The record is a 76-nucleotide sequence from Parnassius apollo, which matches "Mammalian CPEB3 ribozyme" in Rfam.

RNA sequence: AUUGCACAGAAUGGGUCAUUGUAGAAGCGUGCUCGUCGCGACCCCUGCCAGCCCUUUUCAGGGCUGCAAUUCUACA
Numbered sequence: 001a002u003u004g005c006a007c008a009g010a011a012u013g014g015g016u017c018a019u020u021g022u023a024g025a026a027g028c029g030u031g032c033u034c035g036u037c038g039c040g041a042c043c044c045c046u047g048c049c050a051g052c053c054c055u056u057u058u059c060a061g062g063g064c065u066g067c068a069a070u071u072c073u074a075c076a
Stems, first nucleotide, its partner, number of pairs: 013044005020076007027039003049066007
Pairs were carried over by alignment from the consensus structure, which is taken from published work. Gene Ontology term of the family: RNA nuclease activity.